[Rfam]
RNA sequence: CAGGAUACCUUUUGACCCUCCUUAGUUCAACCAAAUGAACUAGAAUUUUAAGAUGGCACAUCUUUUUGAAAACUAGUUCGUUUGUUUGAACUAAGGAGACUCAAAGGGUACCCUG
Numbered sequence: 001c002a003g004g005a006u007a008c009c010u011u012u013u014g015a016c017c018c019u020c021c022u023u024a025g026u027u028c029a030a031c032c033a034a035a036u037g038a039a040c041u042a043g044a045a046u047u048u049u050a051a052g053a054u055g056g057c058a059c060a061u062c063u064u065u066u067u068g069a070a071a072a073c074u075a076g077u078u079c080g081u082u083u084g085u086u087u088g089a090a091c092u093a094a095g096g097a098g099a100c101u102c103a104a105a106g107g108g109u110a111c112c113c114u115g
Stems, first nucleotide, its partner, number of pairs: 002114003006110010018098013032084012
Shown here is a 115-nucleotide RNA from Brachypodium distachyon, a member of the family "MIR5070 microRNA precursor family". The family's consensus secondary structure was predicted with RNAalifold. The family is grouped with related families in Rfam's "MIR2863 microRNA precursor clan". The organism belongs to Brachypodium, within Eukaryota. Its family is annotated with RISC complex and miRNA-mediated post-transcriptional gene silencing in the Gene Ontology.